[Rfam]
RNA sequence: CAAACGGCUCUUUUAAGAGCCACCAACAAAAUCUGAGAGAAAAUGU
Numbered sequence: 001c002a003a004a005c006g007g008c009u010c011u012u013u014u015a016a017g018a019g020c021c022a023c024c025a026a027c028a029a030a031a032u033c034u035g036a037g038a039g040a041a042a043a044u045g046u
Base pairs, nucleotide, nucleotide: 006021007020008019009018010017011016
RNA: Histone 3' UTR stem-loop